[Rfam]
RNA: Mammalian CPEB3 ribozyme
RNA sequence: AUGGAAUAGGUCACAACAGAAGUGCUCUGUCAUGGCCCUGUCAGAUCCCAACAAAUCUGCAAAUUCUGCU
Dot-bracket structure: ........[[[[..(.((((((((......)))]]]]....(((((........)))))....))))).)
Numbered sequence: 001a002u003g004g005a006a007u008a009g010g011u012c013a014c015a016a017c018a019g020a021a022g023u024g025c026u027c028u029g030u031c032a033u034g035g036c037c038c039u040g041u042c043a044g045a046u047c048c049c050a051a052c053a054a055a056u057c058u059g060c061a062a063a064u065u066c067u068g069c070u
Stems, first nucleotide, its partner, number of pairs: 009037004015070001017068005022033003042059005